[Rfam]
A member of the RNA family "Bacterial large signal recognition particle RNA" from Tetzosporium hominis, 267 nucleotides long.
RNA sequence: CCGUGCUAGGUGGGAAGGUAGCGGUGUCCUGUAACUCGCAAUCCGCUCUAGCGAGACUGAACUCCUUCUCUGAGGCUGUUUGCAUGUGAGGUCUGGUGUUUGCACGUAGUGUUGACGUCCGGGUCCUGCGCAAUGAAUACCCAUGAACCAUGUCAGGUCCGGAAGGAAGCAGCAUUAAGUGGUGCUAUUUAUGUGCCGCGGGGUUGCCUGGGCUGAGCUAACGACAAGCGUGCCGCUCAUGUGUAGCAGUCGAAGGAAGGUGCACGG
Dot-bracket structure: ((((((..(((((((.(.(...).).))))....(((((...........)))))))).....(((((.((..(((((..((((((((((...((..(((((...(((((......((((((((((((((((.(((((..((((.....((((....(((....)))....))))...))))....)))))))...))))))...))))))))...))).))..))))).))...)))))))))).)))))..))))))).))))))

NCBI's taxonomy places the organism under Bacteria, Bacillati, Bacillota, Caryophanales, Tetzosporium. It is annotated as a non-coding RNA gene.